RNA sequence: AGCUCCCUGCUCUUUUCGUGAUAGGACAUGAAGUCUUGAGCUAACACCCAUUGAUUGGGUGUCUGAUGCUUGUGUCGAUGUACCCAAUUUGGGUUUACAGCAAAUACUGGCGAUGACACCCUCUUGUCUAUAGGGUUCAAAGACUCUUGCUUACACGAUCUGUGGCGGGGAUUUU
Numbered sequence: 001a002g003c004u005c006c007c008u009g010c011u012c013u014u015u016u017c018g019u020g021a022u023a024g025g026a027c028a029u030g031a032a033g034u035c036u037u038g039a040g041c042u043a044a045c046a047c048c049c050a051u052u053g054a055u056u057g058g059g060u061g062u063c064u065g066a067u068g069c070u071u072g073u074g075u076c077g078a079u080g081u082a083c084c085c086a087a088u089u090u091g092g093g094u095u096u097a098c099a100g101c102a103a104a105u106a107c108u109g110g111c112g113a114u115g116a117c118a119c120c121c122u123c124u125u126g127u128c129u130a131u132a133g134g135g136u137u138c139a140a141a142g143a144c145u146c147u148u149g150c151u152u153a154c155a156c157g158a159u160c161u162g163u164g165g166c167g168g169g170g171a172u173u174u175u
Base pairs, nucleotide, nucleotide: 002173004171005170006169007168008167009166010165011164015158017157018156019155033144034143035142036141037139038138039137040136041135042134057121058120059119061117062116063115068111069110070109072107073106074105075104080098081097083093084092085091086090
RNA: 6S / SsrS RNA